[Rfam]
RNA: MIR162_1 microRNA precursor family
Organism: Ricinus communis
Nucleotides: 101
Base pairs, nucleotide, nucleotide: 006094007093008092011089012088013087015085016084017083018082020080021079022078023077024076025075026074029071030070031069
Number, partner (000 for none) and nucleotide at each position: 001000u002000c003000a004000c005000u006094g007093g008092a009000g010000g011089c012088a013087g014000c015085g016084g017083u018082u019000c020080a021079u022078c023077g024076a025075u026074c027000u028000c029071u030070u031069c032000c033000u034000g035000g036000a037000a038000g039000a040000u041000u042000u043000u044000g045000u046000u047000g048000u049000g050000a051000a052000a053000c054000a055000a056000a057000a058000a059000u060000a061000a062000a063000a064000c065000g066000c067000a068000u069031g070030a071029a072000u073000c074026g075025a076024u077023c078022g079021a080020u081000a082018a083017a084016c085015c086000u087013c088012u089011g090000c091000a092008u093007c094006c095000a096000g097000c098000g099000c100000u101000u